[Rfam]
RNA sequence: GUUGAGGGCUGGGUCUUUGCGGGCGAGAUGAGAGGUUUGUGUCUUCAACUGGCCUACAAAGUCCCAGUCCUCGCC
Numbered sequence: 001g002u003u004g005a006g007g008g009c010u011g012g013g014u015c016u017u018u019g020c021g022g023g024c025g026a027g028a029u030g031a032g033a034g035g036u037u038u039g040u041g042u043c044u045u046c047a048a049c050u051g052g053c054c055u056a057c058a059a060a061g062u063c064c065c066a067g068u069c070c071u072c073g074c075c
Stems, first nucleotide, its partner, number of pairs: 003073006010066004015061005021055004026050002029047002
This 75-nucleotide RNA from Pedionomus torquatus belongs to the Rfam family "mir-193 microRNA precursor family".
The family has 54 seed sequences and 1,158 matches in Rfam 15.1.
Lineage of the source: Eukaryota > Dipnotetrapodomorpha > Sauria > Saurischia > Pedionomus.
The match comes from Rfam's covariance-model search (79 bits).